[Rfam]
The family of this 189-nucleotide RNA sequence from Aspergillus steynii is "Small nucleolar RNA snR80". Gene Ontology terms of the family: nucleolus and RNA processing. On this family, see Schattner et al., Nucleic Acids Res 2004: "Genome-wide searching for pseudouridylation guide snoRNAs: analysis of the Saccharomyces cerevisiae genome". The source organism's lineage runs through Eukaryota, leotiomyceta, Eurotiomycetes, Aspergillaceae and Aspergillus steynii. By type it is an H/ACA-box small nucleolar RNA.
RNA sequence: CAACCUUUGCAACACUCUGGCCCGUACUGUCCCUUCCCGCCUUCGGGCCUUGGAUUGGACUGAGUGCAUCCGUGGUAUAGGCUUAUUUUACGCAAAGAAGAUCAAACCUGACCUACUACUCACCGCGGUAUCUUCGCGAGGUGCUUGCAUCUUUCUGUGGAUACAGUGGUCCAUUUAUCCGGUCAACAU
Numbered sequence: 001c002a003a004c005c006u007u008u009g010c011a012a013c014a015c016u017c018u019g020g021c022c023c024g025u026a027c028u029g030u031c032c033c034u035u036c037c038c039g040c041c042u043u044c045g046g047g048c049c050u051u052g053g054a055u056u057g058g059a060c061u062g063a064g065u066g067c068a069u070c071c072g073u074g075g076u077a078u079a080g081g082c083u084u085a086u087u088u089u090a091c092g093c094a095a096a097g098a099a100g101a102u103c104a105a106a107c108c109u110g111a112c113c114u115a116c117u118a119c120u121c122a123c124c125g126c127g128g129u130a131u132c133u134u135c136g137c138g139a140g141g142u143g144c145u146u147g148c149a150u151c152u153u154u155c156u157g158u159g160g161a162u163a164c165a166g167u168g169g170u171c172c173a174u175u176u177a178u179c180c181g182g183u184c185a186a187c188a189u
Stems, first nucleotide, its partner, number of pairs: 007095003019083004025077006110184004123169004128164006